The family of this 119-nucleotide RNA sequence from Solanum lycopersicum is "Small nucleolar RNA Z152/R70/R12/".
The family's RNA type in Rfam is C/D-box small nucleolar RNA.
On this family, see Barneche et al., J Mol Biol 2001: "Identification of 66 box C/D snoRNAs in Arabidopsis thaliana: extensive gene duplications generated multiple isoforms predicting new ribosomal RNA 2'-O-methylation sites".
Its family is annotated with nucleolus and RNA processing in the Gene Ontology.
The family's consensus secondary structure was predicted with PFOLD.
It scores 83 bits against the family's covariance model.
RNA sequence: AAUGCUGUGAUGAGGUGAAACACUAUAUGGUGUAUUUGGGCAGUGGAAUUAGAAGGUUAUUUUUAUAGCUUUCUCCGUGAGCCUAUUUUAUUAAACGACUUCUCCUUCCACUGAGCAUU
Number, nucleotide and partner (000 for none) at each position: 001a119002a118003u117004g116005c115006u000007g000008u000009g000010a000011u000012g000013a000014g000015g000016u000017g000018a000019a000020a000021c000022a000023c000024u000025a000026u000027a000028u000029g000030g000031u000032g000033u000034a000035u000036u000037u000038g000039g000040g000041c000042a000043g000044u000045g000046g000047a000048a000049u000050u000051a000052g000053a000054a000055g000056g000057u000058u000059a000060u000061u000062u000063u000064u000065a000066u000067a000068g000069c000070u000071u000072u000073c000074u000075c000076c000077g000078u000079g000080a000081g000082c000083c000084u000085a000086u000087u000088u000089u000090a000091u000092u000093a000094a000095a000096c000097g000098a000099c000100u000101u000102c000103u000104c000105c000106u000107u000108c000109c000110a000111c000112u000113g000114a000115g005116c004117a003118u002119u001